[Rfam]
Nucleotides: 147
Stems, first nucleotide, its partner, number of pairs: 017048003023043002030039003081114003087108003091104001093102002127147004
Number, partner (000 for none) and nucleotide at each position: 001000a002000u003000c004000a005000g006000u007000u008000g009000g010000g011000u012000u013000u014000u015000c016000u017048g018047u019046g020000a021000u022000a023043c024042u025000a026000a027000u028000g029000a030039g031038g032037u033000u034000c035000u036000a037032a038031c039030c040000g041000a042024g043023g044000c045000g046019c047018g048017u049000c050000c051000a052000u053000u054000g055000c056000u057000g058000g059000u060000u061000g062000a063000a064000a065000a066000c067000u068000a069000u070000u071000u072000c073000c074000a075000a076000a077000c078000c079000c080000c081114c082113u083112c084000c085000u086000c087108g088107g089106c090000c091104u092000g093102g094101g095000u096000u097000c098000a099000g100000c101094c102093c103000a104091g105000u106089g107088c108087c109000c110000u111000c112083g113082a114081g115000a116000a117000u118000u119000u120000c121000u122000g123000g124000a125000a126000g127147g128146g129145c130144u131000c132000c133000c134000u135000u136000c137000a138000g139000g140000g141000c142000a143000a144130a145129g146128c147127u
The record is a 147-nucleotide RNA sequence from Rosa chinensis, which matches "U4 spliceosomal RNA" in Rfam. The family has 177 seed sequences and 32,178 matches in Rfam 15.1. U4 small nuclear RNA (U4 snRNA) is a component of the major U2-dependent spliceosome. A search with the family's covariance model found it, with a score of 55 bits. Taxonomically the source falls in Rosa (Eukaryota, Streptophytina, rosids, fabids). Its Rfam clan is "U4 clan".